Notes: Shown here is a 68-nucleotide RNA sequence from Drosophila persimilis, a member of the family "mir-3 microRNA precursor family".
RNA sequence: AUUAUACGAUAAACUUUGUUCAGUUUUGCCAACUUGCUUGCAGCACUGGGUGAAGUUUGUCUUAUAAU
Numbered sequence: 001a002u003u004a005u006a007c008g009a010u011a012a013a014c015u016u017u018g019u020u021c022a023g024u025u026u027u028g029c030c031a032a033c034u035u036g037c038u039u040g041c042a043g044c045a046c047u048g049g050g051u052g053a054a055g056u057u058u059g060u061c062u063u064a065u066a067a068u
Stems, first nucleotide, its partner, number of pairs: 005064002008061007017052003021048004

Notes:
Clan: mir-3 clan. For this family Rfam cites "The small RNA profile during Drosophila melanogaster development" (Aravin et al., Dev Cell, 2003). The family's consensus secondary structure was predicted with RNAalifold. Its family is annotated with RISC complex and miRNA-mediated post-transcriptional gene silencing in the Gene Ontology.